The family of this 94-nucleotide RNA sequence from Treponema pedis is "TD-2 RNA".
The family has 36 seed sequences and 310 matches in Rfam 15.1.
Pairs were carried over by alignment from the consensus structure, which is taken from published work.
The family is grouped with related families in Rfam's "TD (Treponema denticola) motifs".
RNA sequence: ACGGACAGGAUGUCCGUUAGAACAGUCUUGCGCGAGUUUUCUGUAAGAAAACUCGAAGCCCCAAAAGGUACAGGACGUACCUUUUGGGGCGGGG
Numbered sequence: 001a002c003g004g005a006c007a008g009g010a011u012g013u014c015c016g017u018u019a020g021a022a023c024a025g026u027c028u029u030g031c032g033c034g035a036g037u038u039u040u041c042u043g044u045a046a047g048a049a050a051a052c053u054c055g056a057a058g059c060c061c062c063a064a065a066a067g068g069u070a071c072a073g074g075a076c077g078u079a080c081c082u083u084u085u086g087g088g089g090c091g092g093g094g
Stems, first nucleotide, its partner, number of pairs: 001017006033055010058090014